Rfam assigns this 167-nucleotide RNA from Microvirga tunisiensis to the family "caulobacter sRNA CC2171".
A reference for the family is Landt et al. (2008), "Small non-coding RNAs in Caulobacter crescentus", Mol Microbiol.
RNA sequence: CAACAGCGAAAGGAGGUGAUCCAGUGUCUCAUUGUCAUACCCUACGGUCCCCGGUUGCCGUGACCUGGAUCUUGGCCUCUGCCGAGAUCGGUGCGUAACGCACAAAAUGGCCGGCUCUAACGGGCCGUGGAACCGACAAUGGAAAGGCCGCCUCUCGGGGCGGCCUU
Numbered sequence: 001c002a003a004c005a006g007c008g009a010a011a012g013g014a015g016g017u018g019a020u021c022c023a024g025u026g027u028c029u030c031a032u033u034g035u036c037a038u039a040c041c042c043u044a045c046g047g048u049c050c051c052c053g054g055u056u057g058c059c060g061u062g063a064c065c066u067g068g069a070u071c072u073u074g075g076c077c078u079c080u081g082c083c084g085a086g087a088u089c090g091g092u093g094c095g096u097a098a099c100g101c102a103c104a105a106a107a108u109g110g111c112c113g114g115c116u117c118u119a120a121c122g123g124g125c126c127g128u129g130g131a132a133c134c135g136a137c138a139a140u141g142g143a144a145a146g147g148c149c150g151c152c153u154c155u156c157g158g159g160g161c162g163g164c165c166u167u
Base pairs, nucleotide, nucleotide: 015022016021030141031140032139033138034137035136036135043074044073046071047070048069049068050067075079081115082114083113087108088107091103092102093101094100118131144167145166146165147164148163149162150161151160152159153158
Notes: It scores 83 bits against the family's covariance model. The family's RNA type in Rfam is small RNA.